Shown here is a 69-nucleotide RNA sequence from Canis lupus, a member of the family "mir-205 microRNA precursor family". It is one of the family's seed sequences. For this family Rfam cites "Vertebrate microRNA genes" (Lim et al., Science, 2003). Gene Ontology terms of the family: miRNA-mediated post-transcriptional gene silencing and RISC complex. Pairs were carried over by alignment from the consensus structure, which was predicted with RNAalifold.
RNA sequence: CUCUUGUCCUUCAUUCCACCGGAGUCUGUCUCGUACCCAACCAGAUUUCAGUGGAGUGAAGUUCAGGAG
Numbered sequence: 001c002u003c004u005u006g007u008c009c010u011u012c013a014u015u016c017c018a019c020c021g022g023a024g025u026c027u028g029u030c031u032c033g034u035a036c037c038c039a040a041c042c043a044g045a046u047u048u049c050a051g052u053g054g055a056g057u058g059a060a061g062u063u064c065a066g067g068a069g
Stems, first nucleotide, its partner, number of pairs: 009061006017053003021049004026044003